[Rfam]
RNA: THF (Tetrahydrofolate) riboswitch aptamer
RNA sequence: UACGGGGUAGGAAUUCGUGCGUUAAGUGCGGCAGAAACGGAAUGUGAGCUGCUGACGAAACAUUUAUGUGCGGUACGAAUUUCGCAUUCACCACC
Numbered sequence: 001u002a003c004g005g006g007g008u009a010g011g012a013a014u015u016c017g018u019g020c021g022u023u024a025a026g027u028g029c030g031g032c033a034g035a036a037a038c039g040g041a042a043u044g045u046g047a048g049c050u051g052c053u054g055a056c057g058a059a060a061c062a063u064u065u066a067u068g069u070g071c072g073g074u075a076c077g078a079a080u081u082u083c084g085c086a087u088u089c090a091c092c093a094c095c
Stems, first nucleotide, its partner, number of pairs: 004092002010083010020072003026056002029054006040089005060069003